Rfam assigns this 310-nucleotide RNA sequence from Methanomassiliicoccales archaeon RumEn M1 to the family "Archaeal signal recognition particle RNA". The literature on the family includes a 2002 paper in Curr Opin Struct Biol by Wild et al., "Towards the structure of the mammalian signal recognition particle". The organism belongs to Methanomassiliicoccales, within Archaea. By type it is a non-coding RNA gene.
RNA sequence: CGCUAGGCUCGACCGGGACGUUCGGCGCGCCCUUAUACACCGCCACGUCGAUAGCGGGGGUGACAGGGGAGGACGUCGUAACCGGAGCGGUGCGGGCCCUGCCGGUGACAAUGAGGCCCUGUCCUAUGGGGUUGGAAGCGUCAUGGAGGUGCGAUCGGAGGGUCGCGCGCCAUGUCAUGGUCACGGGGAACGGGUCAGGCCCUGACGGGAGCAGCCUUACCGUGGAUUACCAACGCUCAGAGGGGUGCGGGGCUAAGGAACUUGCAGGACCACCCGCACCAAUCCGAGCGGCAACCUCCCUGGCCUAGCA
Numbered sequence: 001c002g003c004u005a006g007g008c009u010c011g012a013c014c015g016g017g018a019c020g021u022u023c024g025g026c027g028c029g030c031c032c033u034u035a036u037a038c039a040c041c042g043c044c045a046c047g048u049c050g051a052u053a054g055c056g057g058g059g060g061u062g063a064c065a066g067g068g069g070a071g072g073a074c075g076u077c078g079u080a081a082c083c084g085g086a087g088c089g090g091u092g093c094g095g096g097c098c099c100u101g102c103c104g105g106u107g108a109c110a111a112u113g114a115g116g117c118c119c120u121g122u123c124c125u126a127u128g129g130g131g132u133u134g135g136a137a138g139c140g141u142c143a144u145g146g147a148g149g150u151g152c153g154a155u156c157g158g159a160g161g162g163u164c165g166c167g168c169g170c171c172a173u174g175u176c177a178u179g180g181u182c183a184c185g186g187g188g189a190a191c192g193g194g195u196c197a198g199g200c201c202c203u204g205a206c207g208g209g210a211g212c213a214g215c216c217u218u219a220c221c222g223u224g225g226a227u228u229a230c231c232a233a234c235g236c237u238c239a240g241a242g243g244g245g246u247g248c249g250g251g252g253c254u255a256a257g258g259a260a261c262u263u264g265c266a267g268g269a270c271c272a273c274c275c276g277c278a279c280c281a282a283u284c285c286g287a288g289c290g291g292c293a294a295c296c297u298c299c300c301u302g303g304c305c306u307a308g309c310a
Stems, first nucleotide, its partner, number of pairs: 002309008012061003015033003019029003038058001040057004066301007075292004079287001084285003089280007096270001098268005104262003109257001115254008123243003127239004131234005136228002138178001140176001142174005149168008181225006192217004200209003